[Rfam]
RNA sequence: UGCCAGUAUAGCGGUGCGGGACUUCUGGUCCGCCGCUAUACCUCCCUGUUGGACUGGCCGGGCUUCGUGCCCGGCCUCUUUU
Number, nucleotide and partner (000 for none) at each position: 001u000002g000003c000004c000005a000006g000007u000008a039009u038010a037011g036012c035013g034014g033015u032016g031017c000018g000019g000020g000021a000022c000023u000024u000025c000026u000027g000028g000029u000030c000031c016032g015033c014034c013035g012036c011037u010038a009039u008040a000041c000042c000043u000044c000045c000046c000047u000048g000049u000050u000051g000052g000053a000054c000055u000056g076057g075058c074059c073060g072061g071062g070063c069064u000065u000066c000067g000068u000069g063070c062071c061072c060073g059074g058075c057076c056077u000078c000079u000080u000081u000082u000
This 82-nucleotide RNA from Palleronia marisminoris belongs to the Rfam family "Singlet oxygen resistance RNA X". NCBI's taxonomy places the organism under Bacteria, Pseudomonadota, Alphaproteobacteria, Roseobacteraceae, Palleronia. Rfam 15.1 lists 528 matches to the family in 356 species. Its family is annotated with response to photooxidative stress in the Gene Ontology. A reference for the family is Berghoff et al. (2009), "Photooxidative stress-induced and abundant small RNAs in Rhodobacter sphaeroides", Mol Microbiol. It is annotated as a small RNA. SorX (RSs2461)like SorY is a singlet oxygen induced sRNA that counteracts oxidative stress by targeting mRNA for a transporter in Rhodobacter. It also has an impact on resistance against organic hydroperoxides. It targets SD sequence of potA mRNA via an aSD sequence. The aSD sequence and some neighbouring nucleotides are identical to the one of SorY (targets takP mRNA).